The family of this 174-nucleotide RNA from Rhipicephalus microplus is "U2 spliceosomal RNA". On this family, see Zwieb, Nucleic Acids Res 1997: "The uRNA database". Taxonomically the source falls in Boophilus (Eukaryota, Eumetazoa, Parasitiformes, Ixodida). U2 is a small nuclear RNA (snRNA) component of the spliceosome (involved in pre-mRNA splicing).
RNA sequence: AUAAAUUCUCUUUGUGUAGUAUCUGUUCUUAUCAGCUUAAUAUCUGAUACGGAUCCUGUUUGGAUCCAAGAUAUUAAACUUAUUUUUGUGAUGCGGUGGAGUGCUUGAAGGUUUCUUCACCUCCGCCACGGGUUGGCCCGGUAGUGCACUACCUCCGAGAUCGGCCCACUCACC
Number, nucleotide and partner (000 for none) at each position: 001a000002u000003a000004a000005a000006u000007u000008c000009u000010c000011u000012u000013u000014g000015u000016g000017u000018a000019g000020u000021a000022u000023c000024u000025g000026u000027u000028c000029u000030u049031a048032u047033c046034a045035g044036c000037u000038u000039a000040a000041u000042a000043u000044c035045u034046g033047a032048u031049a030050c000051g067052g066053a065054u064055c063056c062057u000058g000059u000060u000061u000062g056063g055064a054065u053066c052067c051068a000069a000070g000071a000072u000073a000074u000075u000076a000077a000078a000079c000080u000081u000082a000083u000084u000085u000086u000087u000088g000089u000090g000091a000092u000093g000094c000095g127096g126097u125098g124099g123100a122101g121102u000103g000104c000105u000106u000107g118108a117109a116110g115111g000112u000113u000114u000115c110116u109117u108118c107119a000120c000121c101122u100123c099124c098125g097126c096127c095128a000129c000130g167131g166132g165133u164134u163135g162136g000137c159138c000139c157140g156141g155142u000143a000144g000145u000146g000147c000148a000149c000150u000151a000152c000153c000154u000155c141156c140157g139158a000159g137160a000161u000162c135163g134164g133165c132166c131167c130168a000169c000170u000171c000172a000173c000174c000